[Rfam]
Nucleotides: 131
Base pairs, nucleotide, nucleotide: 011027012026013025014024015023016022029053030052031051034048035047037044038043098118099117100116101115102114103113104112105111106110
Number, partner (000 for none) and nucleotide at each position: 001000g002000u003000u004000g005000u006000c007000a008000a009000g010000u011027a012026g013025a014024a015023g016022c017000c018000a019000u020000c021000c022016g023015c024014u025013u026012c027011u028000c029053a030052c031051c032000u033000u034048a035047c036000g037044g038043c039000u040000a041000a042000a043038g044037u045000c046000g047035g048034u049000a050000a051031g052030g053029u054000a055000u056000c057000u058000u059000c060000u061000g062000g063000g064000c065000u066000u067000g068000g069000g070000c071000u072000u073000a074000a075000u076000a077000c078000g079000u080000g081000c082000u083000c084000a085000u086000g087000a088000u089000u090000g091000u092000u093000u094000a095000g096000a097000a098118g099117a100116c101115g102114g103113g104112u105111g106110g107000u108000a109000u110106u111105c112104a113103u114102c115101c116100g117099u118098c119000u120000u121000u122000u123000u124000c125000u126000a127000u128000u129000g130000u131000g